The family of this 139-nucleotide RNA sequence from Winogradskya consettensis is "c-di-AMP riboswitch aptamer (ydaO/yuaA leader)".
RNA sequence: GGCGGACCACCGCUCAAUCGCCACCAGGCGAGCCGGGGAACCACUCAGUAAUGGGGUGAAUCCGCUGAGUAAUCAGCGGUAGGGAUCGCUUCCGUCCCGAACCCGUCAGCUAACUCGGUAGGCGGCAACGUGGAAGGAA
Numbered sequence: 001g002g003c004g005g006a007c008c009a010c011c012g013c014u015c016a017a018u019c020g021c022c023a024c025c026a027g028g029c030g031a032g033c034c035g036g037g038g039a040a041c042c043a044c045u046c047a048g049u050a051a052u053g054g055g056g057u058g059a060a061u062c063c064g065c066u067g068a069g070u071a072a073u074c075a076g077c078g079g080u081a082g083g084g085a086u087c088g089c090u091u092c093c094g095u096c097c098c099g100a101a102c103c104c105g106u107c108a109g110c111u112a113a114c115u116c117g118g119u120a121g122g123c124g125g126c127a128a129c130g131u132g133g134a135a136g137g138a139a
Base pairs, nucleotide, nucleotide: 011124012123013122014121018031019030020029032119033118034117035116036115037114042053043052054104055103056102062079063078064077065076082098083097084096085095